[Rfam]
RNA sequence: UAAAUUUAGGAGCAAUAACCAACCUUCUUGAUACAACAAGAAAUUGGUUAUUGCUCCUAAAU
Numbered sequence: 001u002a003a004a005u006u007u008a009g010g011a012g013c014a015a016u017a018a019c020c021a022a023c024c025u026u027c028u029u030g031a032u033a034c035a036a037c038a039a040g041a042a043a044u045u046g047g048u049u050a051u052u053g054c055u056c057c058u059a060a061a062u
Stems, first nucleotide, its partner, number of pairs: 006060012021045002025042006
Shown here is a 62-nucleotide RNA sequence from Cephalotus follicularis, a member of the family "Plastid-psbA-4 3UTR RNA".
It is annotated as a cis-regulatory element.
Rfam's curators write: Plastid psbA-4 is a non-coding RNA (ncRNA) present in plastids.
Its Rfam clan is "Plastid-psbA 3UTR RNA clan".
The family's consensus secondary structure was predicted with LocARNA.
It scores 62 bits against the family's covariance model.